RNA sequence: UAGGGUGAUAGCAGAGCUGGGACUGCUAAAGUGAAGCGGCGAACCAAGCAGUAGUCAUGGCUUUGGCUACGGAAUUCAUAAGAAGCGGGCAAGCUAUACCAGCUUGUUCGGGCAUCGGAACCCACCAGUUCAUAGACGAUGCUAUGGAUUUCUGCAAUUUGUUUUAGGUGAAAAAAACCCAGGUCUAACACCGCAGCGAAGCCACGCUCGCGGUGUUUU
Numbered sequence: 001u002a003g004g005g006u007g008a009u010a011g012c013a014g015a016g017c018u019g020g021g022a023c024u025g026c027u028a029a030a031g032u033g034a035a036g037c038g039g040c041g042a043a044c045c046a047a048g049c050a051g052u053a054g055u056c057a058u059g060g061c062u063u064u065g066g067c068u069a070c071g072g073a074a075u076u077c078a079u080a081a082g083a084a085g086c087g088g089g090c091a092a093g094c095u096a097u098a099c100c101a102g103c104u105u106g107u108u109c110g111g112g113c114a115u116c117g118g119a120a121c122c123c124a125c126c127a128g129u130u131c132a133u134a135g136a137c138g139a140u141g142c143u144a145u146g147g148a149u150u151u152c153u154g155c156a157a158u159u160u161g162u163u164u165u166a167g168g169u170g171a172a173a174a175a176a177a178c179c180c181a182g183g184u185c186u187a188a189c190a191c192c193g194c195a196g197c198g199a200a201g202c203c204a205c206g207c208u209c210g211c212g213g214u215g216u217u218u219u
Stems, first nucleotide, its partner, number of pairs: 001038001006033001010027005017182005039162005051070007058204006071152010187217008195208004

The record is a 219-nucleotide RNA sequence, which matches "FuFi-1 RNA" in Rfam.
Rfam classes the family as a small RNA.